[Rfam]
RNA sequence: CUUCCCAAGGGGCGCUGCAGCGGGUGCCUGCCUUUGUUACAGAAAGGCAGAUCACCGGUCAGGCUUGGGACCCUCAACUGCGCUCACUUGUU
Numbered sequence: 001c002u003u004c005c006c007a008a009g010g011g012g013c014g015c016u017g018c019a020g021c022g023g024g025u026g027c028c029u030g031c032c033u034u035u036g037u038u039a040c041a042g043a044a045a046g047g048c049a050g051a052u053c054a055c056c057g058g059u060c061a062g063g064c065u066u067g068g069g070a071c072c073c074u075c076a077a078c079u080g081c082g083c084u085c086a087c088u089u090g091u092u
Stems, first nucleotide, its partner, number of pairs: 003070006021058001023056004